Background
The record is a 96-nucleotide RNA from Hordeum vulgare, which matches "MIR5387 microRNA precursor family" in Rfam. Pairs were carried over by alignment from the consensus structure, which was predicted with RNAalifold. Rfam links the family to the GO terms RISC complex and miRNA-mediated post-transcriptional gene silencing.

RNA sequence: UCGUGGCACCAACCGGUACCAAUGCCCCCCUUUAGUCCCGGUUGGUGGAACCAACCGGGACUAAAGGGGGGCAUUGGUACCGGUUGGUGCCACGAA
Number, nucleotide and partner (000 for none) at each position: 001u000002c000003g093004u092005g091006g090007c089008a088009c087010c086011a085012a084013c083014c082015g081016g080017u079018a078019c077020c076021a075022a074023u073024g072025c071026c070027c069028c000029c067030c066031u000032u000033u000034a062035g061036u060037c000038c058039c057040g000041g000042u000043u000044g000045g051046u050047g000048g000049a000050a046051c045052c000053a000054a000055c000056c000057g039058g038059g000060a036061c035062u034063a000064a000065a000066g030067g029068g000069g027070g026071g025072c024073a023074u022075u021076g020077g019078u018079a017080c016081c015082g014083g013084u012085u011086g010087g009088u008089g007090c006091c005092a004093c003094g000095a000096a000

Taxonomically the source falls in Hordeum vulgare (Eukaryota, Mesangiospermae, Liliopsida, Hordeinae).